The record is a 137-nucleotide RNA from Lihuaxuella thermophila, which matches "FMN riboswitch aptamer (RFN element)" in Rfam.

[Rfam]
RNA sequence: AACAUCCUUCGGGGCAGGGUGAAAUUCCCGACCGGCGGUGAUGGCAGCAGGGCUGCCUCAGUCCGUGACCCGCGAAAGCGGUGGAUUCGGUGAAACUCCGGAACCGACAGUGAGAGUCUGGAUGGGAGAAGGAUGGA
Numbered sequence: 001a002a003c004a005u006c007c008u009u010c011g012g013g014g015c016a017g018g019g020u021g022a023a024a025u026u027c028c029c030g031a032c033c034g035g036c037g038g039u040g041a042u043g044g045c046a047g048c049a050g051g052g053c054u055g056c057c058u059c060a061g062u063c064c065g066u067g068a069c070c071c072g073c074g075a076a077a078g079c080g081g082u083g084g085a086u087u088c089g090g091u092g093a094a095a096c097u098c099c100g101g102a103a104c105c106g107a108c109a110g111u112g113a114g115a116g117u118c119u120g121g122a123u124g125g126g127a128g129a130a131g132g133a134u135g136g137a
Stems, first nucleotide, its partner, number of pairs: 003135008017029003031117002033106002035066004061104002070081002086102005108120003